[Rfam]
RNA sequence: UCCAUAGAUACAACUUUUUAGAGAACAUUCUAAAGUAUGUAUCUAUGUCGGUAAAUGAACGUAAAUAUCGCCGCAUAGAUGAAUCCAUCUAUGCGGCUUUUUUUGUUG
Numbered sequence: 001u002c003c004a005u006a007g008a009u010a011c012a013a014c015u016u017u018u019u020a021g022a023g024a025a026c027a028u029u030c031u032a033a034a035g036u037a038u039g040u041a042u043c044u045a046u047g048u049c050g051g052u053a054a055a056u057g058a059a060c061g062u063a064a065a066u067a068u069c070g071c072c073g074c075a076u077a078g079a080u081g082a083a084u085c086c087a088u089c090u091a092u093g094c095g096g097c098u099u100u101u102u103u104u105g106u107u108g
Stems, first nucleotide, its partner, number of pairs: 003047009015037001017034005070097011